[Rfam]
RNA sequence: AAUUAUCUUCGGGGCAGGGUGAAAUUCCCGACCGGCGGUUAUAGUCCGCGAGCGUAAGCUGAUUUGGUGAAAUUCCAAAACCGACAGUACAGUCUGGAUGAUAGAAGAUACGG
Numbered sequence: 001a002a003u004u005a006u007c008u009u010c011g012g013g014g015c016a017g018g019g020u021g022a023a024a025u026u027c028c029c030g031a032c033c034g035g036c037g038g039u040u041a042u043a044g045u046c047c048g049c050g051a052g053c054g055u056a057a058g059c060u061g062a063u064u065u066g067g068u069g070a071a072a073u074u075c076c077a078a079a080a081c082c083g084a085c086a087g088u089a090c091a092g093u094c095u096g097g098a099u100g101a102u103a104g105a106a107g108a109u110a111c112g113g
Stems, first nucleotide, its partner, number of pairs: 004110007017029003031093002033083002035049004044081002052059002063079005085096003

FMN riboswitch aptamer (RFN element): a 113-nucleotide RNA from Gemella morbillorum.
Gene Ontology term of the family: FMN binding.
Lineage of the source: Bacteria > Bacillota > Bacilli > Gemellaceae > Gemella.
The base pairs follow the family's consensus structure, which is taken from published work.